[Rfam]
RNA sequence: CCGUGACCCCGCAGUGCUGCACUCGGUGUAUUUGAUAAGCUGAGUUUGACACUCUGUGUGGCCCGAGUGUCAGUUUGUCAAAUAUGCAAAGGGCGGCAUCUGCCCAG
Numbered sequence: 001c002c003g004u005g006a007c008c009c010c011g012c013a014g015u016g017c018u019g020c021a022c023u024c025g026g027u028g029u030a031u032u033u034g035a036u037a038a039g040c041u042g043a044g045u046u047u048g049a050c051a052c053u054c055u056g057u058g059u060g061g062c063c064c065g066a067g068u069g070u071c072a073g074u075u076u077g078u079c080a081a082a083u084a085u086g087c088a089a090a091g092g093g094c095g096g097c098a099u100c101u102g103c104c105c106a107g
Stems, first nucleotide, its partner, number of pairs: 020093001022091002026087001028085014048071004053066002